[Rfam]
RNA sequence: UACCUUGAGGUAUAAAUAAACAGAUAUAGCUUGUGUUUAGUACAACUGCAACUCUGGUGGUUGGAAGAACAUAACAGAUACUAAAGAA
Numbered sequence: 001u002a003c004c005u006u007g008a009g010g011u012a013u014a015a016a017u018a019a020a021c022a023g024a025u026a027u028a029g030c031u032u033g034u035g036u037u038u039a040g041u042a043c044a045a046c047u048g049c050a051a052c053u054c055u056g057g058u059g060g061u062u063g064g065a066a067g068a069a070c071a072u073a074a075c076a077g078a079u080a081c082u083a084a085a086g087a088a
Base pairs, nucleotide, nucleotide: 001012002011003010004009019079021077031074032073033072034071035070036069037068043063044062045058046057047056